This 110-nucleotide RNA from Entomomonas asaccharolytica belongs to the Rfam family "Gammaprotebacteria rimP leader". Rfam links the family to the GO term regulation of gene expression. The base pairs follow the family's consensus structure, which is taken from published work.

RNA sequence: UGGUUCAAAUCCAGCCCCCGCAACCAGUUUUUAAGAAGCCCCAAUUAUGGGGUUUUUUGUUAUUACAGUGUUGAAAUUAAUUAUAAGAAUGGGCUAUACGCCCAUUUUUU
Number, nucleotide and partner (000 for none) at each position: 001u000002g000003g000004u000005u000006c000007a000008a000009a000010u000011c000012c000013a000014g000015c000016c000017c000018c000019c000020g000021c000022a000023a000024c000025c000026a000027g000028u000029u000030u000031u000032u000033a000034a000035g056036a055037a054038g053039c052040c051041c050042c049043a048044a000045u000046u000047a000048u043049g042050g041051g040052g039053u038054u037055u036056u035057u000058u000059g000060u000061u000062a000063u000064u000065a000066c000067a000068g000069u000070g000071u000072u000073g000074a000075a000076a000077u000078u000079a000080a000081u000082u000083a000084u000085a000086a000087g000088a000089a000090u000091g103092g102093g101094c100095u000096a000097u000098a000099c000100g094101c093102c092103c091104a000105u000106u000107u000108u000109u000110u000
A reference for the family is Naville and Gautheret (2010), "Premature terminator analysis sheds light on a hidden world of bacterial transcriptional attenuation", Genome Biol.
A search with the family's covariance model found it, with a score of 47 bits.